This 76-nucleotide RNA from Danio rerio belongs to the Rfam family "mir-218 microRNA precursor family". The organism belongs to Danio, within Eukaryota.
RNA sequence: CAGGACACCAUUGUGCUUGAUCUAACCAUGCAGUUCCCUUUCUGUCCAUGGUUGUGCCAAGCACUUUGGAGACUUG
Numbered sequence: 001c002a003g004g005a006c007a008c009c010a011u012u013g014u015g016c017u018u019g020a021u022c023u024a025a026c027c028a029u030g031c032a033g034u035u036c037c038c039u040u041u042c043u044g045u046c047c048a049u050g051g052u053u054g055u056g057c058c059a060a061g062c063a064c065u066u067u068g069g070a071g072a073c074u075u076g
Stems, first nucleotide, its partner, number of pairs: 001076004006071001008069002013064007024053007